[Rfam]
RNA: Iron response element II
Organism: Hucho hucho
RNA sequence: UAAUUAUCGGGUGCAGUGUUUUCCAUAAUUA
Numbered sequence: 001u002a003a004u005u006a007u008c009g010g011g012u013g014c015a016g017u018g019u020u021u022u023c024c025a026u027a028a029u030u031a
Stems, first nucleotide, its partner, number of pairs: 001031007009024003013020001014018001